[Rfam]
RNA sequence: GGCGUAAAGCGCGCGUAGGCGGAUUGUUAAGUCAGUUGUGAAAGCCCUGGGCUCAACCUAGGAACGGCGAUUGAAACUGGCAGUCUAGAGUUUAGUAGAGGGAAGGGGAAUUUCUGGAGUAGCAGUGAAAUGCGUAGAUAUCAGAAGGAACAUCAGUGGCGAAGGCGCCUUCCUGGACUAAAACUGACGCUGAGGUGCGAAAGCGUGGGGAGCAAACGGGAUUAGAUACCCCGGUAGUCCACGCCCUAAACGAUGUCAACUAGCUGUUGGUCUUAUUAAAAAGAUUAGUAGCGCAGCUAACGCGAUAAGUUGACCGCCUGGGGAGUACGGUCGCAAGAUUAAAACUCAAAGGAAU
Numbered sequence: 001g002g003c004g005u006a007a008a009g010c011g012c013g014c015g016u017a018g019g020c021g022g023a024u025u026g027u028u029a030a031g032u033c034a035g036u037u038g039u040g041a042a043a044g045c046c047c048u049g050g051g052c053u054c055a056a057c058c059u060a061g062g063a064a065c066g067g068c069g070a071u072u073g074a075a076a077c078u079g080g081c082a083g084u085c086u087a088g089a090g091u092u093u094a095g096u097a098g099a100g101g102g103a104a105g106g107g108g109a110a111u112u113u114c115u116g117g118a119g120u121a122g123c124a125g126u127g128a129a130a131u132g133c134g135u136a137g138a139u140a141u142c143a144g145a146a147g148g149a150a151c152a153u154c155a156g157u158g159g160c161g162a163a164g165g166c167g168c169c170u171u172c173c174u175g176g177a178c179u180a181a182a183a184c185u186g187a188c189g190c191u192g193a194g195g196u197g198c199g200a201a202a203g204c205g206u207g208g209g210g211a212g213c214a215a216a217c218g219g220g221a222u223u224a225g226a227u228a229c230c231c232c233g234g235u236a237g238u239c240c241a242c243g244c245c246c247u248a249a250a251c252g253a254u255g256u257c258a259a260c261u262a263g264c265u266g267u268u269g270g271u272c273u274u275a276u277u278a279a280a281a282a283g284a285u286u287a288g289u290a291g292c293g294c295a296g297c298u299a300a301c302g303c304g305a306u307a308a309g310u311u312g313a314c315c316g317c318c319u320g321g322g323g324a325g326u327a328c329g330g331u332c333g334c335a336a337g338a339u340u341a342a343a344a345c346u347c348a349a350a351g352g353a354a355u
Base pairs, nucleotide, nucleotide: 001318002317003316009315011198012197013196014195016192018191019190020189022085023084024083025082026081027080028079030078031077032074033073034072035071036070037069038068039067046062047061048060049059050058051057089185090184091183092181093180094179095178096177100174101173102172103171104170105169106168107151111147112146113145114144115143116142117141122133123132124131159166160165203244204243205242206241207240208239212238213237217233218232219231220230255314256313257312258311259310260309263292264291265290266289267288268287269286270285271284272283273282274281296303297302320347321346322345329340330339331338332337
The family of this 355-nucleotide part of an RNA from Thiomicrospira cyclica is "Bacterial small subunit ribosomal RNA". The family is grouped with related families in Rfam's "SSU clan". The base pairs follow the family's consensus structure, which is taken from published work. The organism belongs to Thiomicrospira cyclica, within Bacteria. Its family is annotated with structural constituent of ribosome and ribosome in the Gene Ontology. For this family Rfam cites "Crystal structure of the ribosome at 5.5 A resolution" (Yusupov et al., Science, 2001).